[Rfam]
RNA sequence: UGAUACCAGGGUCAAAAGGUCCGAAAUCCGCUGCAAGCUUGCUUGCAAGAGGAUUUUUGACCUUGGGACCCGCCAAAAACAUGAAUAAGCAGCCAUUUUUCAUAGAAAAAUGAGCGGAUUAUGAAUGUUUUUAGGAUUGUGAGAACACGCAGUGCGAAACAAUCCGGUAUCA
Dot-bracket structure: (((((((..((((...(((((.(((((((.(((((((....))))).)).))))))).)))))...))))....((((((((..((((...((((((((((...)))))))).))...))))..)))))))).(((((((.....(((...)))....))))))))))))))

The family of this 172-nucleotide sequence is "Clostridiales-1 RNA".
Rfam's curators put it in the seed alignment.